[Rfam]
RNA sequence: UCACACCCUGCGGGAGAGCUCCGAUCGAACCGGCACGCCACAAGGCCACCGUCCGAUCGGACACCGAAGGAGCAACCUCCCCGUCAAUCUCUCAGGUCUCACGACCGCAGGAGUCAG
Dot-bracket structure: ......(((((((......((((((((..........................)))))))).(((((..(((....(.....).....))))).))).......)))))))......
Rfam assigns this 117-nucleotide sequence from Curtobacterium sp. Leaf261 to the family "Glycine riboswitch aptamer". Taxonomically the source falls in Curtobacterium (Bacteria, Bacillati, Actinomycetes, Microbacteriaceae).